[Rfam]
Rfam assigns this 129-nucleotide RNA sequence from Longimycelium tulufanense to the family "FMN riboswitch aptamer (RFN element)".
RNA sequence: GUGCGCUCCGGGGCUCGGUGAAAGUCCGAACCGGCGGUGACAGCCCGCGACCCGGCGACCGUACGGUCGCCGGCUGACCCGGUGGAACUCCGGGGCCGACGGUGAAAGUCCGGAUGGGAGGCGGCGCAC
Numbered sequence: 001g002u003g004c005g006c007u008c009c010g011g012g013g014c015u016c017g018g019u020g021a022a023a024g025u026c027c028g029a030a031c032c033g034g035c036g037g038u039g040a041c042a043g044c045c046c047g048c049g050a051c052c053c054g055g056c057g058a059c060c061g062u063a064c065g066g067u068c069g070c071c072g073g074c075u076g077a078c079c080c081g082g083u084g085g086a087a088c089u090c091c092g093g094g095g096c097c098g099a100c101g102g103u104g105a106a107a108g109u110c111c112g113g114a115u116g117g118g119a120g121g122c123g124g125c126g127c128a129c
Stems, first nucleotide, its partner, number of pairs: 003127005008121002016028003030109002032098002034048004043096002052073002078094005100112003
Annotation
The match comes from Rfam's covariance-model search (90 bits).